Rfam assigns this 400-nucleotide part of an RNA from Methanococcus aeolicus to the family "Archaeal large subunit ribosomal RNA". Gene Ontology terms of the family: ribosome and structural constituent of ribosome.
RNA sequence: AGUAGUAACAGCACAAGUGGAGUGAGAAUCUCCACCGCCGAAGGGGCAAGGGUUUCACAGCAAUGUUCGUCAGCUGUGAGUAAGCCGGUCCUAACUUCCGAGGUAACUCCUUUGGAAGGAAAGGGAGACAGGUUAAUAUUCCUGUGCCAUCUAAAUACACGCGGCAACGCAAGGUUAGUUUCUGACGCUUCAGGGUAUGCUAACUACUCUUGUCUGGGUAGUCAAAUGUAUAAGUCUGGGGAGAGUUGUAAUAACGAGAACCAGAUGAAAGCAUGAUGAUCCAUCCUUUAGGAUGGUUUGGCAGAUCUCUGGAGCCCGUGAAAAGGGAACUAUCAUGGAUUUUAGAUGACCGUACCCAGAACCGACACUGGUGCCCCUAGGUGAGUAUCCUAAGGCGUAU
Numbered sequence: 001a002g003u004a005g006u007a008a009c010a011g012c013a014c015a016a017g018u019g020g021a022g023u024g025a026g027a028a029u030c031u032c033c034a035c036c037g038c039c040g041a042a043g044g045g046g047c048a049a050g051g052g053u054u055u056c057a058c059a060g061c062a063a064u065g066u067u068c069g070u071c072a073g074c075u076g077u078g079a080g081u082a083a084g085c086c087g088g089u090c091c092u093a094a095c096u097u098c099c100g101a102g103g104u105a106a107c108u109c110c111u112u113u114g115g116a117a118g119g120a121a122a123g124g125g126a127g128a129c130a131g132g133u134u135a136a137u138a139u140u141c142c143u144g145u146g147c148c149a150u151c152u153a154a155a156u157a158c159a160c161g162c163g164g165c166a167a168c169g170c171a172a173g174g175u176u177a178g179u180u181u182c183u184g185a186c187g188c189u190u191c192a193g194g195g196u197a198u199g200c201u202a203a204c205u206a207c208u209c210u211u212g213u214c215u216g217g218g219u220a221g222u223c224a225a226a227u228g229u230a231u232a233a234g235u236c237u238g239g240g241g242a243g244a245g246u247u248g249u250a251a252u253a254a255c256g257a258g259a260a261c262c263a264g265a266u267g268a269a270a271g272c273a274u275g276a277u278g279a280u281c282c283a284u285c286c287u288u289u290a291g292g293a294u295g296g297u298u299u300g301g302c303a304g305a306u307c308u309c310u311g312g313a314g315c316c317c318g319u320g321a322a323a324a325g326g327g328a329a330c331u332a333u334c335a336u337g338g339a340u341u342u343u344a345g346a347u348g349a350c351c352g353u354a355c356c357c358a359g360a361a362c363c364g365a366c367a368c369u370g371g372u373g374c375c376c377c378u379a380g381g382u383g384a385g386u387a388u389c390c391u392a393a394g395g396c397g398u399a400u
Stems, first nucleotide, its partner, number of pairs: 017035006036397004044376004050356002055079006064072002086352003090124002095118006101111003128145005148348008181327003187315009198303005203222006226274004235265005245255003286291001362371002378392004
Record summary:
The source organism's lineage runs through Archaea, Methanobacteriati, Methanobacteriota, Methanococcales and Methanococcus aeolicus.